[Rfam]
This 159-nucleotide RNA sequence from Carlito syrichta belongs to the Rfam family "U1 spliceosomal RNA". Pairs were carried over by alignment from the consensus structure, which is taken from published work. Its family is annotated with pre-mRNA 5'-splice site binding, U1 snRNP and mRNA 5'-splice site recognition in the Gene Ontology. U1 is a small nuclear RNA (snRNA) component of the spliceosome (involved in pre-mRNA splicing). Its 5' end forms complementary base pairs with the 5' splice junction, thus defining the 5' donor site of an intron. There are significant differences in sequence and secondary structure between metazoan and yeast U1 snRNAs, the latter being much longer (568 nucleotides as compared to 164 nucleotides in human). Nevertheless, secondary structure predictions suggest that all U1 snRNAs share a 'common core' consisting of helices I, II, the proximal region of III, and IV. This family does not contain the larger yeast sequences.
RNA sequence: AUACUUAUCUGGCAGGGAAGAUACCAUGAUCAUGAAGGUGGUUUUCCCAGGGUGAGGUUUAUUUAUUUCACUCUGGAUGUGCUGACGAUUUCCCCAAAUGGUAGGAAACUCAACUGCAUAAUUUGUGGUAGUGGGGGACUGCAUUCGUGCUCUCCCCUG
Numbered sequence: 001a002u003a004c005u006u007a008u009c010u011g012g013c014a015g016g017g018a019a020g021a022u023a024c025c026a027u028g029a030u031c032a033u034g035a036a037g038g039u040g041g042u043u044u045u046c047c048c049a050g051g052g053u054g055a056g057g058u059u060u061a062u063u064u065a066u067u068u069c070a071c072u073c074u075g076g077a078u079g080u081g082c083u084g085a086c087g088a089u090u091u092c093c094c095c096a097a098a099u100g101g102u103a104g105g106a107a108a109c110u111c112a113a114c115u116g117c118a119u120a121a122u123u124u125g126u127g128g129u130a131g132u133g134g135g136g137g138a139c140u141g142c143a144u145u146c147g148u149g150c151u152c153u154c155c156c157c158u159g
Base pairs, nucleotide, nucleotide: 012117013116014115015114016048017047019045020044021043023042024041025040026039027038054086056083057082058081060079061078062077063076064075087111088110089108090106091105093104133158134157135156136155137154138153141150142149143148